About this RNA:
Shown here is a 99-nucleotide sequence from Podarcis lilfordi, a member of the family "Vault RNA". The family's RNA type in Rfam is non-coding RNA gene. About the family: This family of RNAs are found as part of the enigmatic vault ribonucleoprotein complex. Lineage of the source: Eukaryota > Bilateria > Gnathostomata > Bifurcata > Podarcis. The literature on the family includes a 2009 paper in Mol Biol Evol by Stadler et al., "Evolution of Vault RNAs".
RNA sequence: CAGCCAGCUUAGCCCAGCGGUUCCAUCGACCAACGCGUAGCUUGCAUCCUGCAAUCGCCCACAGCGGUUUGAAACCCGUGGGCGCUGCCUGGCUUCUCC
Numbered sequence: 001c002a003g004c005c006a007g008c009u010u011a012g013c014c015c016a017g018c019g020g021u022u023c024c025a026u027c028g029a030c031c032a033a034c035g036c037g038u039a040g041c042u043u044g045c046a047u048c049c050u051g052c053a054a055u056c057g058c059c060c061a062c063a064g065c066g067g068u069u070u071g072a073a074a075c076c077c078g079u080g081g082g083c084g085c086u087g088c089c090u091g092g093c094u095u096c097u098c099c
Base pairs, nucleotide, nucleotide: 002094003093004092005091006090007089012083013082014081015080017079018078019077020076026072027071028070029069